[Rfam]
RNA sequence: GGGGCUGAACGGUUUCGACUGCGUACGUUGAUUCAGGGGAAGCGUGUCGGUGCAGGCAAGAGACCACCGUAAGCGUCGUUGCAACCAAUUAAGCGCCGAUUCUCAUCAGCGCGAGUACGCUCUCGCUGCCUAAGCGACAGCGUCUCUGUCGGCCCGGGAUAUGCCCUCGGUCCCGGUGCCGGCAUCAGCUAGAGGGCUCACCGUCCCACUCGGUCGCGGAGUGGUACGGGACAACAAACAGCGACUGGGAUCGUCAUCCGAGCUCGUUCGCGUGACCCGGAGAUCCGAGCAGAGACACAGCGAACUGCACACGGAGAAGCCCUGAAGACGCGGCGGAGGACCCGGGUUCGAUUCCCGGCAGCUCCACUC
Numbered sequence: 001g002g003g004g005c006u007g008a009a010c011g012g013u014u015u016c017g018a019c020u021g022c023g024u025a026c027g028u029u030g031a032u033u034c035a036g037g038g039g040a041a042g043c044g045u046g047u048c049g050g051u052g053c054a055g056g057c058a059a060g061a062g063a064c065c066a067c068c069g070u071a072a073g074c075g076u077c078g079u080u081g082c083a084a085c086c087a088a089u090u091a092a093g094c095g096c097c098g099a100u101u102c103u104c105a106u107c108a109g110c111g112c113g114a115g116u117a118c119g120c121u122c123u124c125g126c127u128g129c130c131u132a133a134g135c136g137a138c139a140g141c142g143u144c145u146c147u148g149u150c151g152g153c154c155c156g157g158g159a160u161a162u163g164c165c166c167u168c169g170g171u172c173c174c175g176g177u178g179c180c181g182g183c184a185u186c187a188g189c190u191a192g193a194g195g196g197c198u199c200a201c202c203g204u205c206c207c208a209c210u211c212g213g214u215c216g217c218g219g220a221g222u223g224g225u226a227c228g229g230g231a232c233a234a235c236a237a238a239c240a241g242c243g244a245c246u247g248g249g250a251u252c253g254u255c256a257u258c259c260g261a262g263c264u265c266g267u268u269c270g271c272g273u274g275a276c277c278c279g280g281a282g283a284u285c286c287g288a289g290c291a292g293a294g295a296c297a298c299a300g301c302g303a304a305c306u307g308c309a310c311a312c313g314g315a316g317a318a319g320c321c322c323u324g325a326a327g328a329c330g331c332g333g334c335g336g337a338g339g340a341c342c343c344g345g346g347u348u349c350g351a352u353u354c355c356c357g358g359c360a361g362c363u364c365c366a367c368u369c
Base pairs, nucleotide, nucleotide: 001365002364003363004362005361006360007359019338020337022335023334024333032326033325034324035323036322037321038320043313044312045311046310047309048069049068050067051066052065056082057081058080059079124142125141126140127139128138147184148183149182150181151180152179154176155175156174157173158172159171160170163197164196165195166194167193168192201229202228203227204226206224207223208222209221212246213245214244215243216242217241248286249285250284251283252282254280255279266305267304268303269302342358343357344356345355346354